Rfam assigns this 81-nucleotide RNA sequence from Syntrophobacter fumaroxidans to the family "Group II catalytic intron D1-D4-1". The pairing is the family consensus, mapped onto this sequence. Group II introns are found in rRNA, tRNA and mRNA of organelles in fungi, plants and protists, and also in mRNA in bacteria. Rfam's curators put it in the seed alignment. Taxonomically the source falls in Syntrophobacter fumaroxidans (Bacteria, Pseudomonadati, Syntrophobacteria, Syntrophobacteraceae).

[Rfam]
RNA sequence: CUACCGCUGUCGAGAGGCGGCGGGAAGGGUCGACAGAAGUCAGCAGAGGGCAUAGUAGGUCCUUCGACCGGACUGAAGGCC
Numbered sequence: 001c002u003a004c005c006g007c008u009g010u011c012g013a014g015a016g017g018c019g020g021c022g023g024g025a026a027g028g029g030u031c032g033a034c035a036g037a038a039g040u041c042a043g044c045a046g047a048g049g050g051c052a053u054a055g056u057a058g059g060u061c062c063u064u065c066g067a068c069c070g071g072a073c074u075g076a077a078g079g080c081c
Stems, first nucleotide, its partner, number of pairs: 001027002004023008040047002049081003058074005
Dot-bracket structure: ((.((((((((....))))))))..))............((....)).(((......(((((.......)))))....)))